[Rfam]
RNA sequence: GGGCAGGAUAGGUGAAGUAGGCCCACACGCGACGCGUGUGGGCCUACUUCACCUAUCCUUAUUCGCACUUCGUGCUCAACGGGAAUCCUGCUCUGCGAGGCC
Numbered sequence: 001g002g003g004c005a006g007g008a009u010a011g012g013u014g015a016a017g018u019a020g021g022c023c024c025a026c027a028c029g030c031g032a033c034g035c036g037u038g039u040g041g042g043c044c045u046a047c048u049u050c051a052c053c054u055a056u057c058c059u060u061a062u063u064c065g066c067a068c069u070u071c072g073u074g075c076u077c078a079a080c081g082g083g084a085a086u087c088c089u090g091c092u093c094u095g096c097g098a099g100g101c102c
Stems, first nucleotide, its partner, number of pairs: 001093009012052006019045003024040006056083003065075004
RNA: traJ-II RNA